[Rfam]
RNA: manA RNA
RNA sequence: UGGAGAUUGAUCAUCUCCAUAGGGUAUGGCUGAAUAACUGUUGUGGUCAUCACGCAGUAAGGCUGAAGUAGAACAGGCUGUGGUGGCCGCCAAGGAAUACCGGGAGACCGGAGUCUUGUGAAUCCUUAACCGGGAGUUCGAAAAGAUCAGAGGUUUACUAAGCAUUAGUGAGACCCCUCUGUUGAAGGUAUAAUGUAAUCCUUCUACCCACCUU
Numbered sequence: 001u002g003g004a005g006a007u008u009g010a011u012c013a014u015c016u017c018c019a020u021a022g023g024g025u026a027u028g029g030c031u032g033a034a035u036a037a038c039u040g041u042u043g044u045g046g047u048c049a050u051c052a053c054g055c056a057g058u059a060a061g062g063c064u065g066a067a068g069u070a071g072a073a074c075a076g077g078c079u080g081u082g083g084u085g086g087c088c089g090c091c092a093a094g095g096a097a098u099a100c101c102g103g104g105a106g107a108c109c110g111g112a113g114u115c116u117u118g119u120g121a122a123u124c125c126u127u128a129a130c131c132g133g134g135a136g137u138u139c140g141a142a143a144a145g146a147u148c149a150g151a152g153g154u155u156u157a158c159u160a161a162g163c164a165u166u167a168g169u170g171a172g173a174c175c176c177c178u179c180u181g182u183u184g185a186a187g188g189u190a191u192a193a194u195g196u197a198a199u200c201c202u203u204c205u206a207c208c209c210a211c212c213u214u
Stems, first nucleotide, its partner, number of pairs: 001019006022209005029063002041057005069141001071139004076088003081132004090120001093117003123135002148181006155171004163195004184204005